A member of the RNA family "mraW RNA" from Micrococcales bacterium KH10, 98 nucleotides long. Pairs were carried over by alignment from the consensus structure, which is taken from published work. It is annotated as a cis-regulatory element.

[Rfam]
RNA sequence: GCAGCUGCGUUUCUUGCGGCCUCCUCCCGCAGUUCUGACGCACUUCCCCGGCGCCAGAAAUGUAGCGGAGGGAGACCACAGGAAACGAGCUUCGACGC
Numbered sequence: 001g002c003a004g005c006u007g008c009g010u011u012u013c014u015u016g017c018g019g020c021c022u023c024c025u026c027c028c029g030c031a032g033u034u035c036u037g038a039c040g041c042a043c044u045u046c047c048c049c050g051g052c053g054c055c056a057g058a059a060a061u062g063u064a065g066c067g068g069a070g071g072g073a074g075a076c077c078a079c080a081g082g083a084a085a086c087g088a089g090c091u092u093c094g095a096c097g098c
Stems, first nucleotide, its partner, number of pairs: 010085007018077002021074005027068004031061001033059005039053003